Shown here is a 164-nucleotide RNA sequence from Nicotiana tabacum, a member of the family "small nucleolar RNA snoR143". Rfam links the family to the GO terms nucleolus and RNA processing. The literature on the family includes a 2009 paper in Nucleic Acids Res by Chen and Wu, "Mining small RNA sequencing data: a new approach to identify small nucleolar RNAs in Arabidopsis". A search with the family's covariance model found it, with a score of 105 bits. The base pairs follow the family's consensus structure, which was predicted with RNAalifold. Taxonomically the source falls in Nicotiana (Eukaryota, Streptophyta, Magnoliopsida, Mesangiospermae).
RNA sequence: CUGCACACGUUUAUAUAAAGGCUACGCUAAAAAUAUUGAUAUAGUGGAGCCUUGAGCGAUAGUGCAAAAAAGAAAUGCUGAGUUAAAUCAGCGGCGGCCAGACAACCGCUGAGAUGAAUCCACAGACGGGUGUGGUACUUGUCUACUAAUUUCAUCUCACAAUU
Numbered sequence: 001c002u003g004c005a006c007a008c009g010u011u012u013a014u015a016u017a018a019a020g021g022c023u024a025c026g027c028u029a030a031a032a033a034u035a036u037u038g039a040u041a042u043a044g045u046g047g048a049g050c051c052u053u054g055a056g057c058g059a060u061a062g063u064g065c066a067a068a069a070a071a072g073a074a075a076u077g078c079u080g081a082g083u084u085a086a087a088u089c090a091g092c093g094g095c096g097g098c099c100a101g102a103c104a105a106c107c108g109c110u111g112a113g114a115u116g117a118a119u120c121c122a123c124a125g126a127c128g129g130g131u132g133u134g135g136u137a138c139u140u141g142u143c144u145a146c147u148a149a150u151u152u153c154a155u156c157u158c159a160c161a162a163u164u
Stems, first nucleotide, its partner, number of pairs: 002066005008058003014054001018053006025046005111158008129140002